Record summary: This 152-nucleotide RNA from Streptomyces tateyamensis belongs to the Rfam family "c-di-AMP riboswitch aptamer (ydaO/yuaA leader)". It scores 59 bits against the family's covariance model.
RNA sequence: CUGCGGGGGCAGCCGUGGACCGGAGCCGGGGAACCACACGUUCCUCCGGGGUGAAUCGGCGCCAGGCCGGCCGCAAGGCCGGUGAGGCGCCGUAGGGCAACUUCCAGCCCGAACCCGUCAGCUCACCCGGUAGGCGGUCGUAGGAAGAAGGA
Numbered sequence: 001c002u003g004c005g006g007g008g009g010c011a012g013c014c015g016u017g018g019a020c021c022g023g024a025g026c027c028g029g030g031g032a033a034c035c036a037c038a039c040g041u042u043c044c045u046c047c048g049g050g051g052u053g054a055a056u057c058g059g060c061g062c063c064a065g066g067c068c069g070g071c072c073g074c075a076a077g078g079c080c081g082g083u084g085a086g087g088c089g090c091c092g093u094a095g096g097g098c099a100a101c102u103u104c105c106a107g108c109c110c111g112a113a114c115c116c117g118u119c120a121g122c123u124c125a126c127c128c129g130g131u132a133g134g135c136g137g138u139c140g141u142a143g144g145a146a147g148a149a150g151g152a
Base pairs, nucleotide, nucleotide: 001022025131026130027129028128029127030126035048049116050115051114057092058091059090060089061088062087063086095110096109097108098107
The source organism's lineage runs through Bacteria, Bacillati, Actinomycetes, Kitasatosporales and Streptomyces.